[Rfam]
RNA sequence: CUGACAGGCGCGUACGGGUCAAUUGCGGCUUGCAACACCCGAUCUCCCUCGUGACGCCCCCAGAAAUGGGCGCACUCACGGAGGGGGAGCGCGUGACCGUCAG
Dot-bracket structure: (((((..((((((.((((....(((((...)))))..)))).((((((((..............................))))))))))))))....)))))
Shown here is a 103-nucleotide RNA sequence from Haloarchaeobius iranensis, a member of the family "L4-Archaeoglobi ribosomal protein leades". Rfam classes the family as a cis-regulatory leader. NCBI's taxonomy places the organism under Archaea, Methanobacteriati, Methanobacteriota, Halobacteria, Haloarchaeobius. It scores 73 bits against the family's covariance model. The base pairs follow the family's consensus structure, which is taken from published work.